Shown here is an 87-nucleotide RNA from Zostera marina, a member of the family "small nucleolar RNA snoR126". The family has 4 seed sequences and 423 matches in Rfam 15.1. The family's consensus secondary structure was predicted with RNAalifold.
RNA sequence: UGGCAAUGAUGACAAACUAUCACUCGAUCUGCAGAUUUGUAUCUGCUAUUUCUGAUGACUAACAUGUUUUGUGCGUGUCUGAGCCAA
Numbered sequence: 001u002g003g004c005a006a007u008g009a010u011g012a013c014a015a016a017c018u019a020u021c022a023c024u025c026g027a028u029c030u031g032c033a034g035a036u037u038u039g040u041a042u043c044u045g046c047u048a049u050u051u052c053u054g055a056u057g058a059c060u061a062a063c064a065u066g067u068u069u070u071g072u073g074c075g076u077g078u079c080u081g082a083g084c085c086a087a
Base pairs, nucleotide, nucleotide: 001086002085003084004083

Its family is annotated with nucleolus and RNA processing in the Gene Ontology.